Description: The record is a 35-nucleotide RNA from Pedobacter cryotolerans, which matches "DUF805b RNA" in Rfam. Rfam classes the family as a cis-regulatory element. The source organism's lineage runs through Bacteria, Bacteroidota, Sphingobacteriia, Sphingobacteriales and Pedobacter. The match comes from Rfam's covariance-model search (36 bits).

[Rfam]
RNA sequence: UGAGGGGAGACCGAAAACCUGAAAAAGAGUAGGUA
Numbered sequence: 001u002g003a004g005g006g007g008a009g010a011c012c013g014a015a016a017a018c019c020u021g022a023a024a025a026a027g028a029g030u031a032g033g034u035a
Stems, first nucleotide, its partner, number of pairs: 003020003010034003
Dot-bracket structure: ..(((....[[[.....)))...........]]].